[Rfam]
RNA sequence: CGACCCGCGCCCGCGGGUCGUCUACCCCGGUACCUGACACGGCCGGAGAGA
Numbered sequence: 001c002g003a004c005c006c007g008c009g010c011c012c013g014c015g016g017g018u019c020g021u022c023u024a025c026c027c028c029g030g031u032a033c034c035u036g037a038c039a040c041g042g043c044c045g046g047a048g049a050g051a
Stems, first nucleotide, its partner, number of pairs: 001020008022050002025048001027046005
This 51-nucleotide RNA sequence from Nocardioides anomalus belongs to the Rfam family "L17-Actino-Proteobacteria ribosomal protein leader". NCBI's taxonomy places the organism under Bacteria, Bacillati, Actinomycetes, Propionibacteriales, Nocardioides. The match comes from Rfam's covariance-model search (49 bits).